RNA sequence: CCUCCUCUGAUGAUGCAUCUCCGUGACUUUCGUUCUCCUGAGCUCGCUGAAGCCAAGGAUUUCAAUCUGAGGAGG
Numbered sequence: 001c002c003u004c005c006u007c008u009g010a011u012g013a014u015g016c017a018u019c020u021c022c023g024u025g026a027c028u029u030u031c032g033u034u035c036u037c038c039u040g041a042g043c044u045c046g047c048u049g050a051a052g053c054c055a056a057g058g059a060u061u062u063c064a065a066u067c068u069g070a071g072g073a074g075g
Base pairs, nucleotide, nucleotide: 001075002074003073005071
Notes:
This 75-nucleotide RNA sequence from Urocolius indicus belongs to the Rfam family "Small nucleolar RNA SNORD59". A reference for the family is Galardi et al. (2002), "Purified box C/D snoRNPs are able to reproduce site-specific 2'-O-methylation of target RNA in vitro", Mol Cell Biol. Lineage of the source: Eukaryota > Gnathostomata > Neognathae > Coraciimorphae > Urocolius. The match comes from Rfam's covariance-model search (58 bits).